[Rfam]
RNA sequence: GGACCGGCCUAGCCGACUGGGUACUUCGUGACGACUGUUCGUUGUUCAUAGCUACCAGAAUAAGCUGUGGGAAAUGGCACCCCUGUCCCAUAGGCGCAGUCCGAUCCUUUU
Numbered sequence: 001g002g003a004c005c006g007g008c009c010u011a012g013c014c015g016a017c018u019g020g021g022u023a024c025u026u027c028g029u030g031a032c033g034a035c036u037g038u039u040c041g042u043u044g045u046u047c048a049u050a051g052c053u054a055c056c057a058g059a060a061u062a063a064g065c066u067g068u069g070g071g072a073a074a075u076g077g078c079a080c081c082c083c084u085g086u087c088c089c090a091u092a093g094g095c096g097c098a099g100u101c102c103g104a105u106c107c108u109u110u111u
Stems, first nucleotide, its partner, number of pairs: 002106002005103003012095003018090003025073003029069001
Notes:
Rfam assigns this 111-nucleotide RNA sequence from Darwinula stevensoni to the family "Vault RNA". By type it is a non-coding RNA gene. Lineage of the source: Eukaryota > Opisthokonta > Podocopida > Darwinuloidea > Darwinula. A search with the family's covariance model found it, with a score of 35 bits.